[Rfam]
RNA sequence: ACAGAAAAGGAGUUGUGAAACUCUGAGAAUAGAAUAGUUUAGUUAAGUCUAGUUUAGUUUUUGUGUUAAAUGGCUUCCUCGUCGGCGGACGAACAAGGAAGCCAUUUUUAU
Numbered sequence: 001a002c003a004g005a006a007a008a009g010g011a012g013u014u015g016u017g018a019a020a021c022u023c024u025g026a027g028a029a030u031a032g033a034a035u036a037g038u039u040u041a042g043u044u045a046a047g048u049c050u051a052g053u054u055u056a057g058u059u060u061u062u063g064u065g066u067u068a069a070a071u072g073g074c075u076u077c078c079u080c081g082u083c084g085g086c087g088g089a090c091g092a093a094c095a096a097g098g099a100a101g102c103c104a105u106u107u108u109u110a111u
Stems, first nucleotide, its partner, number of pairs: 001064005009024006036055002039052004071104009080091003

A member of the RNA family "Bacteroides sRNA BTnc049" from Bacteroides sp. CAG:189, 111 nucleotides long.
A search with the family's covariance model found it, with a score of 114 bits.
The literature on the family includes a 2020 paper in Nat Commun by Ryan et al., "A high-resolution transcriptome map identifies small RNA regulation of metabolism in the gut microbe Bacteroides thetaiotaomicron".
NCBI's taxonomy places the organism under Bacteria, Pseudomonadati, Bacteroidota, Bacteroidales, Bacteroides.
It is annotated as a small RNA.
The family's consensus secondary structure is taken from published work.